[Rfam]
RNA sequence: AUGCACUAGAUACUAACCUGACUGUCUGCUGCCCAGUAGUUUUUGUGCUGGUGCACUUCGUGGCUGUCGGGUCCAGAAUGGUGCUAUAAAAACAUGCGCCCUGAGAUUUAAGCACUGAGAGGGAAGUCACUACCUCAGCUGUUAUUACUCAGGGACACACAC
Dot-bracket structure: ..((((((.......(((.(((.(((.(.((((.((((.......)))).).)))).....))).))).)))......)))))).............(.(.................((.((....)).)).(((.((...(....))).)))).)......
RNA: Small Cajal body specific RNA 1
Organism: Pangasianodon hypophthalmus